[Rfam]
RNA: PhotoRC-II RNA
RNA sequence: ACACGCCUUACCAGGACUAAACAGCGUGUCUAAAAAACAGUCCUUCAUACCUGAUCUGGAGGGUAGAUCAGGAAUACUA
Numbered sequence: 001a002c003a004c005g006c007c008u009u010a011c012c013a014g015g016a017c018u019a020a021a022c023a024g025c026g027u028g029u030c031u032a033a034a035a036a037a038c039a040g041u042c043c044u045u046c047a048u049a050c051c052u053g054a055u056c057u058g059g060a061g062g063g064u065a066g067a068u069c070a071g072g073a074a075u076a077c078u079a
Stems, first nucleotide, its partner, number of pairs: 002028005008023001013044005050072007